[Rfam]
Source information
FMN riboswitch aptamer (RFN element): a 172-nucleotide RNA from Paenibacillus rhizosphaerae.

RNA sequence: UAUAUCCUUCGGGGCAGGGUGAAAUUCCCUACCGGCGGUGAUGAUGCGGCAGCCGAUCAGUUCUGGCGCCCGUCUCAGUCCGUGACCCGGACGCUUCGUUUGACGAUUAGCGUACGGUGGACCUGGUGCAAAUCCGGGACCGACAGUAUAGUCUGGAUGGGAGAAGGAGAGA
Numbered sequence: 001u002a003u004a005u006c007c008u009u010c011g012g013g014g015c016a017g018g019g020u021g022a023a024a025u026u027c028c029c030u031a032c033c034g035g036c037g038g039u040g041a042u043g044a045u046g047c048g049g050c051a052g053c054c055g056a057u058c059a060g061u062u063c064u065g066g067c068g069c070c071c072g073u074c075u076c077a078g079u080c081c082g083u084g085a086c087c088c089g090g091a092c093g094c095u096u097c098g099u100u101u102g103a104c105g106a107u108u109a110g111c112g113u114a115c116g117g118u119g120g121a122c123c124u125g126g127u128g129c130a131a132a133u134c135c136g137g138g139a140c141c142g143a144c145a146g147u148a149u150a151g152u153c154u155g156g157a158u159g160g161g162a163g164a165a166g167g168a169g170a171g172a
Base pairs, nucleotide, nucleotide: 003170005168006167007166008165009164010163017029018028019027031152032151033142034141035083036082037081038080087117088116122138123137124136125135126134144155145154146153